[Rfam]
RNA sequence: GUCGCCAAUGCAGCCGACCCAAGCCAUAGGCCUGCGAAGGCGAAGGCCGCAACUGGCCAGCAUCGCGUCGACAUAAUCGCGAGGCCGGCCGC
Numbered sequence: 001g002u003c004g005c006c007a008a009u010g011c012a013g014c015c016g017a018c019c020c021a022a023g024c025c026a027u028a029g030g031c032c033u034g035c036g037a038a039g040g041c042g043a044a045g046g047c048c049g050c051a052a053c054u055g056g057c058c059a060g061c062a063u064c065g066c067g068u069c070g071a072c073a074u075a076a077u078c079g080c081g082a083g084g085c086c087g088g089c090c091g092c
Stems, first nucleotide, its partner, number of pairs: 001018004023047003031039001049092002053088006063082005
Description
The record is a 92-nucleotide RNA sequence from Agrobacterium tumefaciens, which matches "Rhizobiales sRNA Atu_Ti1" in Rfam. The source organism's lineage runs through Bacteria, Pseudomonadati, Pseudomonadota, Rhizobiaceae and Agrobacterium tumefaciens. It is annotated as a small RNA. Pairs were carried over by alignment from the consensus structure, which was predicted with WAR. For this family Rfam cites "Deep sequencing uncovers numerous small RNAs on all four replicons of the plant pathogen Agrobacterium tumefaciens" (Wilms et al., RNA Biol, 2012).